A member of the RNA family "Small nucleolar RNA Z247" from Phtheirospermum japonicum, 140 nucleotides long.

RNA sequence: AAUCUCUACAGAUGAUGAUCAGAUUUCAUCCAUCCUUGAUGGAUUGGCUGCUGAAUAUGAUCCAGUUUCAAUAUCCAUCAACUCAAGAGUUCCUCCUUGUUCAUUGAGGGAAGCUCAAGCCCUUUUGCUAACUUUUGAGA
Numbered sequence: 001a002a003u004c005u006c007u008a009c010a011g012a013u014g015a016u017g018a019u020c021a022g023a024u025u026u027c028a029u030c031c032a033u034c035c036u037u038g039a040u041g042g043a044u045u046g047g048c049u050g051c052u053g054a055a056u057a058u059g060a061u062c063c064a065g066u067u068u069c070a071a072u073a074u075c076c077a078u079c080a081a082c083u084c085a086a087g088a089g090u091u092c093c094u095c096c097u098u099g100u101u102c103a104u105u106g107a108g109g110g111a112a113g114c115u116c117a118a119g120c121c122c123u124u125u126u127g128c129u130a131a132c133u134u135u136u137g138a139g140a
Stems, first nucleotide, its partner, number of pairs: 004139003008135001092109004

A search with the family's covariance model found it, with a score of 53 bits. Its family is annotated with RNA processing and nucleolus in the Gene Ontology. The base pairs follow the family's consensus structure, which was predicted with PFOLD. By type it is a C/D-box small nucleolar RNA.